The record is a 323-nucleotide sequence from Chelydra serpentina, which matches "Nuclear RNase P" in Rfam. The family's RNA type in Rfam is ribozyme. The organism belongs to Chelydra, within Eukaryota. A reference for the family is Frank et al. (2000), "Phylogenetic-comparative analysis of the eukaryal ribonuclease P RNA", RNA. From the family's description: Ribonuclease P (RNase P) is a ubiquitous endoribonuclease, found in archaea, bacteria and eukarya as well as chloroplasts and mitochondria. Its best characterised activity is the generation of mature 5'-ends of tRNAs by cleaving the 5'-leader elements of precursor-tRNAs. Cellular RNase Ps are ribonucleoproteins.

RNA sequence: GUCAGAGGGAAGCUCACCGUUGAGGUCACAUGCAGGGUGCUUGUCACUCACUAUUCAAUGCCUCAGGGAAGGUCUGAGACAGGAGCCAUUAGCUGCCCUUGCAGGGCAUCACCUGCUGUAGGUGAAUGAGUUAUCAGCUAUGUUGGGCCCUGGUUUGGGGGACACAUGUGACAGGAGAAACCAGAGGGGGGAUGCUCCCCUGGCAGAUGCACAUUCUCCCCAAGGGCUUUGGGACAGGCUCAUGGCUGGCACUCCUGAGCUCAAUGGGAUGAGGUGAGACCUCCCAGGCCUCAUAACCCAACUCAGACUACUCUCCCUCUGAC
Numbered sequence: 001g002u003c004a005g006a007g008g009g010a011a012g013c014u015c016a017c018c019g020u021u022g023a024g025g026u027c028a029c030a031u032g033c034a035g036g037g038u039g040c041u042u043g044u045c046a047c048u049c050a051c052u053a054u055u056c057a058a059u060g061c062c063u064c065a066g067g068g069a070a071g072g073u074c075u076g077a078g079a080c081a082g083g084a085g086c087c088a089u090u091a092g093c094u095g096c097c098c099u100u101g102c103a104g105g106g107c108a109u110c111a112c113c114u115g116c117u118g119u120a121g122g123u124g125a126a127u128g129a130g131u132u133a134u135c136a137g138c139u140a141u142g143u144u145g146g147g148c149c150c151u152g153g154u155u156u157g158g159g160g161g162a163c164a165c166a167u168g169u170g171a172c173a174g175g176a177g178a179a180a181c182c183a184g185a186g187g188g189g190g191g192a193u194g195c196u197c198c199c200c201u202g203g204c205a206g207a208u209g210c211a212c213a214u215u216c217u218c219c220c221c222a223a224g225g226g227c228u229u230u231g232g233g234a235c236a237g238g239c240u241c242a243u244g245g246c247u248g249g250c251a252c253u254c255c256u257g258a259g260c261u262c263a264a265u266g267g268g269a270u271g272a273g274g275u276g277a278g279a280c281c282u283c284c285c286a287g288g289c290c291u292c293a294u295a296a297c298c299c300a301a302c303u304c305a306g307a308c309u310a311c312u313c314u315c316c317c318u319c320u321g322a323c
Stems, first nucleotide, its partner, number of pairs: 001323004008316003013273004017268002021065005035049005074306005084247004094108005109125006126243007146228006274294005280288001